[Rfam]
RNA sequence: CUGGUUGUAGGGGUACAGUGAUCAGGUUACGAUGGAUUUCUCAAGUAACAACCUCGUAGCUCGGUCACGAUAUCCAUAUGACUCG
Numbered sequence: 001c002u003g004g005u006u007g008u009a010g011g012g013g014u015a016c017a018g019u020g021a022u023c024a025g026g027u028u029a030c031g032a033u034g035g036a037u038u039u040c041u042c043a044a045g046u047a048a049c050a051a052c053c054u055c056g057u058a059g060c061u062c063g064g065u066c067a068c069g070a071u072a073u074c075c076a077u078a079u080g081a082c083u084c085g
Stems, first nucleotide, its partner, number of pairs: 003083007011075005018068006025061008034053002
The family of this 85-nucleotide sequence from Ornithorhynchus anatinus is "mir-1329 microRNA precursor family". The family's consensus secondary structure was predicted with RNAalifold.